[Rfam]
Rfam assigns this 79-nucleotide RNA from Gallus gallus to the family "mir-17 microRNA precursor family". Its family is annotated with miRNA-mediated post-transcriptional gene silencing and RISC complex in the Gene Ontology. Rfam describes the family as follows. This family represents the microRNA (miRNA) precursor mir-17, family, which includes mir-20, mir-91, and mir-103. miRNAs are transcribed as ~70nt precursors (modelled here) and subsequently processed by the Dicer enzyme to give a ~22nt product. It is one of the family's seed sequences. NCBI's taxonomy places the organism under Eukaryota, Craniata, Teleostomi, Coelurosauria, Gallus.
RNA sequence: CUAGCAGUAUCAAAGUGCUCAUAGUGCAGGUAGCUUGGCAUUGGACCUACUGUAAUGUGGGCACUUACAGUACUGUUAG
Numbered sequence: 001c002u003a004g005c006a007g008u009a010u011c012a013a014a015g016u017g018c019u020c021a022u023a024g025u026g027c028a029g030g031u032a033g034c035u036u037g038g039c040a041u042u043g044g045a046c047c048u049a050c051u052g053u054a055a056u057g058u059g060g061g062c063a064c065u066u067a068c069a070g071u072a073c074u075g076u077u078a079g
Base pairs, nucleotide, nucleotide: 004076005075006074007073009071010070013066014065015064016063017062018061019060020059021058022057023056025054026053027052029051030050031049032048033047